RNA sequence: UAAAUGGAGAGUUUGAUCCUGGCUCAGGACGAACGCUGGCGGCGUGCCUAAUACAUGCAAGUCGAGCGGAGUUGAUGGAGUGCUUGCACUCCUGAUGUUAGCGGCGGACGGGUGAGUAACACGUAGGUAACCUGCCCGUAAGACUGGGAUAACAUUCGGAAACGAAUGCUAAUACCGGAUACACAACUUGGUCGCAUGAUCGGAGUUGGGAAAGACGGAGCAAUCUGUCACUUACGGAUGGACCUGCGGCGCAUUAGCUAGUUGGUGAGGUAACGGCUCACCAAGGCGACGAUGCGUAGCCGACCUGAGAGGGUGAUCGGCCACACUGGGACUGAGACACGGCCCAGACUCCUACGGGAGGCAGCAGUAGGGAAUCUUCCGCAAUGGACGAAAGUCUGACGGAGCAACGCCGCGUGAGUGAUGAAGGUUUUCGGAUCGUAAAGCUCUGUUGCCAGGGAAGAACGCUAAGGAGAGUAACUGCUCUUUAGGUGACGGUACCUGAGAAGAAAGCCCCGGCUAACUACGUGCCAGCAGCCGCGGUAAUACGUAGGGGGCAAGCGUUGUCCGGAAUUAUUG
Numbered sequence: 001u002a003a004a005u006g007g008a009g010a011g012u013u014u015g016a017u018c019c020u021g022g023c024u025c026a027g028g029a030c031g032a033a034c035g036c037u038g039g040c041g042g043c044g045u046g047c048c049u050a051a052u053a054c055a056u057g058c059a060a061g062u063c064g065a066g067c068g069g070a071g072u073u074g075a076u077g078g079a080g081u082g083c084u085u086g087c088a089c090u091c092c093u094g095a096u097g098u099u100a101g102c103g104g105c106g107g108a109c110g111g112g113u114g115a116g117u118a119a120c121a122c123g124u125a126g127g128u129a130a131c132c133u134g135c136c137c138g139u140a141a142g143a144c145u146g147g148g149a150u151a152a153c154a155u156u157c158g159g160a161a162a163c164g165a166a167u168g169c170u171a172a173u174a175c176c177g178g179a180u181a182c183a184c185a186a187c188u189u190g191g192u193c194g195c196a197u198g199a200u201c202g203g204a205g206u207u208g209g210g211a212a213a214g215a216c217g218g219a220g221c222a223a224u225c226u227g228u229c230a231c232u233u234a235c236g237g238a239u240g241g242a243c244c245u246g247c248g249g250c251g252c253a254u255u256a257g258c259u260a261g262u263u264g265g266u267g268a269g270g271u272a273a274c275g276g277c278u279c280a281c282c283a284a285g286g287c288g289a290c291g292a293u294g295c296g297u298a299g300c301c302g303a304c305c306u307g308a309g310a311g312g313g314u315g316a317u318c319g320g321c322c323a324c325a326c327u328g329g330g331a332c333u334g335a336g337a338c339a340c341g342g343c344c345c346a347g348a349c350u351c352c353u354a355c356g357g358g359a360g361g362c363a364g365c366a367g368u369a370g371g372g373a374a375u376c377u378u379c380c381g382c383a384a385u386g387g388a389c390g391a392a393a394g395u396c397u398g399a400c401g402g403a404g405c406a407a408c409g410c411c412g413c414g415u416g417a418g419u420g421a422u423g424a425a426g427g428u429u430u431u432c433g434g435a436u437c438g439u440a441a442a443g444c445u446c447u448g449u450u451g452c453c454a455g456g457g458a459a460g461a462a463c464g465c466u467a468a469g470g471a472g473a474g475u476a477a478c479u480g481c482u483c484u485u486u487a488g489g490u491g492a493c494g495g496u497a498c499c500u501g502a503g504a505a506g507a508a509a510g511c512c513c514c515g516g517c518u519a520a521c522u523a524c525g526u527g528c529c530a531g532c533a534g535c536c537g538c539g540g541u542a543a544u545a546c547g548u549a550g551g552g553g554g555c556a557a558g559c560g561u562u563g564u565c566c567g568g569a570a571u572u573a574u575u576g
Base pairs, nucleotide, nucleotide: 009025010024011023012022013021027566028565029564030563032562033561034560035559036558037557039413040412041411042410043409044408045406046405047371052369053368054367056366057365058364061105062104063103066102067101070098077092078091079090080089081088082087112324113323114322122248123247124246125245126244127243128242131241132240136237137236138235139234140233141232142231144178145177146176147175153168154167155166156165157164158163184208185207186206187205188204189203190201191200192199193198214229215228216227217226218225250296251295252294257287258286259285262284263283264282265281266280267279268278269277299321300320301319302318303314304313305312306311326347327346328345329344330343349360350359351358352357377403379402380401381400385398386397387396388395389394416446417445418444419443426437427436428435429434450507453501454500455499456498460493466487467486468485469484470483471482510555511554512553513552514551521550522549523548524547525546531538532537
Dot-bracket structure: ........(((((.......))))).((((.((((((.(((((((((....(((.(((..(((..((..(......((((((....)))))).....)..)))))......(((.......(((((((..((...(((((((.((((.....((((((....))))))......)))).....((((((((((....)))).)))))).....(((((......))))).)))))))..))))))))).(((....(((..((((((((.......)))))))))))......)))..((((((((....))))...))))))).(((((............))))).((((....))))...)))))).).....(.(((...(((((....))))).)))).)).))))))..((((......((((....)))).....))))...(..((((...(.....((((((..........)))))).....)....)))).....)..(((((......(((((.....((....)).......)))))))))).))))))))))..........
Description
A member of the RNA family "Bacterial small subunit ribosomal RNA" from Paenibacillus sp. Leaf72, 576 nucleotides of a longer RNA. The family has 99 seed sequences and 42,628 matches in Rfam 15.1. The family is grouped with related families in Rfam's "SSU clan".